[Rfam]
RNA sequence: ACAGGUUUGAGGCUAUAACAAAAGUACUUAUGAUGUAGCCCUGUCAGAUUCCAGCUUAUCUGUGAACUCUGCU
Numbered sequence: 001a002c003a004g005g006u007u008u009g010a011g012g013c014u015a016u017a018a019c020a021a022a023a024g025u026a027c028u029u030a031u032g033a034u035g036u037a038g039c040c041c042u043g044u045c046a047g048a049u050u051c052c053a054g055c056u057u058a059u060c061u062g063u064g065a066a067c068u069c070u071g072c073u
Base pairs, nucleotide, nucleotide: 009041011040012039013038014037017073019071020070022068024036025035026034045062046061047060048059049058